[Rfam]
RNA sequence: UUUUAAAAGCGUUUAUUAAAUGCGUUCGUCUAAGAAUAUUAUUUAAGAUUAUUCUUGUAUAUAGUUUUUACUUUUGAUAAUCCUACUCUAAUAAAAUAAAUCCUAAUAUCUUAAAUUUUAGUAGCAUAAUAAUUUGUUAACUAAUUAUUAAAGUGUUCCAUAGAAAAUUUUGAAAUUAAAACAAACAAAAUAAAUAAUAAAUUAAAAUAAAAAUUUUAAUAAAAAUUAAAAAAUUAAAAUAGGGCAAGUCCUACUCUCCUUUACAAAGAGAACAUUUUAUAUGUAAUUGUAUGUUUGAUUGGGGCAAUACUAUAUCUAUUUAUAUAGAAAAAGAACUAUAAUAAUUGAAAUAAUAAAAGGUUCGAGCAGGUUAACAAGCAUUAUUACUAAAUGUGUUUCAUCGUCUACUUAUUGCUUAAAUUGAUUGUUCAUCAAAAUUGCAAUUCGUUAGUUGGGUUAAAAUCGUUGUAAAGCAGAUUUGUUUAUAUAUUUAAUUUAUAUAUUAAAAAAUAAUUAAAAUUAGUACGCAAGGAUCGUUUAUAUGUAAUUGCAAAAAAUAU
Dot-bracket structure: ...............................................................................................................................................................................................................................................((((......)))).(((.((((((((.((..((((.....)))).(((((.............))))).((((((......)))))).....(((((.....................)))))............((((((...........))))))..(((.((((..(((((......(((....)))........)))))..).))).))).......)).)))))))).)))...................................................................................
Numbered sequence: 001u002u003u004u005a006a007a008a009g010c011g012u013u014u015a016u017u018a019a020a021u022g023c024g025u026u027c028g029u030c031u032a033a034g035a036a037u038a039u040u041a042u043u044u045a046a047g048a049u050u051a052u053u054c055u056u057g058u059a060u061a062u063a064g065u066u067u068u069u070a071c072u073u074u075u076g077a078u079a080a081u082c083c084u085a086c087u088c089u090a091a092u093a094a095a096a097u098a099a100a101u102c103c104u105a106a107u108a109u110c111u112u113a114a115a116u117u118u119u120a121g122u123a124g125c126a127u128a129a130u131a132a133u134u135u136g137u138u139a140a141c142u143a144a145u146u147a148u149u150a151a152a153g154u155g156u157u158c159c160a161u162a163g164a165a166a167a168u169u170u171u172g173a174a175a176u177u178a179a180a181a182c183a184a185a186c187a188a189a190a191u192a193a194a195u196a197a198u199a200a201a202u203u204a205a206a207a208u209a210a211a212a213a214u215u216u217u218a219a220u221a222a223a224a225a226u227u228a229a230a231a232a233a234u235u236a237a238a239a240u241a242g243g244g245c246a247a248g249u250c251c252u253a254c255u256c257u258c259c260u261u262u263a264c265a266a267a268g269a270g271a272a273c274a275u276u277u278u279a280u281a282u283g284u285a286a287u288u289g290u291a292u293g294u295u296u297g298a299u300u301g302g303g304g305c306a307a308u309a310c311u312a313u314a315u316c317u318a319u320u321u322a323u324a325u326a327g328a329a330a331a332a333g334a335a336c337u338a339u340a341a342u343a344a345u346u347g348a349a350a351u352a353a354u355a356a357a358a359g360g361u362u363c364g365a366g367c368a369g370g371u372u373a374a375c376a377a378g379c380a381u382u383a384u385u386a387c388u389a390a391a392u393g394u395g396u397u398u399c400a401u402c403g404u405c406u407a408c409u410u411a412u413u414g415c416u417u418a419a420a421u422u423g424a425u426u427g428u429u430c431a432u433c434a435a436a437a438u439u440g441c442a443a444u445u446c447g448u449u450a451g452u453u454g455g456g457u458u459a460a461a462a463u464c465g466u467u468g469u470a471a472a473g474c475a476g477a478u479u480u481g482u483u484u485a486u487a488u489a490u491u492u493a494a495u496u497u498a499u500a501u502a503u504u505a506a507a508a509a510a511u512a513a514u515u516a517a518a519a520u521u522a523g524u525a526c527g528c529a530a531g532g533a534u535c536g537u538u539u540a541u542a543u544g545u546a547a548u549u550g551c552a553a554a555a556a557a558u559a560u
Stems, first nucleotide, its partner, number of pairs: 240253004255477003259473008268464002272284004286308005310327006333363005376398006401455003405451003408447001411444005422431003
The record is a 560-nucleotide sequence from Strigomonas culicis, which matches "Trypanosomatid mitochondrial large subunit ribosomal RNA" in Rfam.
The family's consensus secondary structure was predicted with RNAalifold.